[Rfam]
RNA sequence: CGGGUCGGCCAGACGGUCGCGUCGCGGACAACGGCUUCGGCCGCGGUCCGUGCCGAGGAACGUCCGGGCUCCGCAGGGCAGGACGGUGGGUAACACCCACCCGGGGCAACCCGCGAGACAGUGCCACAGAGAACAGACCGCCACGGGCUCCGGCCCGCGGUGAGGGUGAAACGGUGGGGUAAGAGCCCACCAGCGGCCGCGGUGACGCGGUCGGCUCGGUAAACCUCGUUCGGAGCAAGGCCAGACAGAGCACUAUGGGGCUGCCCGUCCCGUGCUCGGGUAGGCCGCUGGAGGGCCGCGGCAACGCGUCCCCGAGAGAGAUGGCCGUCGAACCGCGUCGCGAGAGCGCGCGGGGAACAGAACCCGGCGUAUCGGCCGGCCCGCUCA
Numbered sequence: 001c002g003g004g005u006c007g008g009c010c011a012g013a014c015g016g017u018c019g020c021g022u023c024g025c026g027g028a029c030a031a032c033g034g035c036u037u038c039g040g041c042c043g044c045g046g047u048c049c050g051u052g053c054c055g056a057g058g059a060a061c062g063u064c065c066g067g068g069c070u071c072c073g074c075a076g077g078g079c080a081g082g083a084c085g086g087u088g089g090g091u092a093a094c095a096c097c098c099a100c101c102c103g104g105g106g107c108a109a110c111c112c113g114c115g116a117g118a119c120a121g122u123g124c125c126a127c128a129g130a131g132a133a134c135a136g137a138c139c140g141c142c143a144c145g146g147g148c149u150c151c152g153g154c155c156c157g158c159g160g161u162g163a164g165g166g167u168g169a170a171a172c173g174g175u176g177g178g179g180u181a182a183g184a185g186c187c188c189a190c191c192a193g194c195g196g197c198c199g200c201g202g203u204g205a206c207g208c209g210g211u212c213g214g215c216u217c218g219g220u221a222a223a224c225c226u227c228g229u230u231c232g233g234a235g236c237a238a239g240g241c242c243a244g245a246c247a248g249a250g251c252a253c254u255a256u257g258g259g260g261c262u263g264c265c266c267g268u269c270c271c272g273u274g275c276u277c278g279g280g281u282a283g284g285c286c287g288c289u290g291g292a293g294g295g296c297c298g299c300g301g302c303a304a305c306g307c308g309u310c311c312c313c314g315a316g317a318g319a320g321a322u323g324g325c326c327g328u329c330g331a332a333c334c335g336c337g338u339c340g341c342g343a344g345a346g347c348g349c350g351c352g353g354g355g356a357a358c359a360g361a362a363c364c365c366g367g368c369g370u371a372u373c374g375g376c377c378g379g380c381c382c383g384c385u386c387a
Stems, first nucleotide, its partner, number of pairs: 001383010011372001012329007020055002023052006060370003064367005069235004076266004081231005086100005101115001102113004116226002121224002123220003138165002140161003144157005173191006193215001194213008239286004248277006257271005293312003297308004

The family of this 387-nucleotide RNA from Agromyces seonyuensis is "Bacterial RNase P class A". The organism belongs to Agromyces, within Bacteria. The family's consensus secondary structure is taken from published work.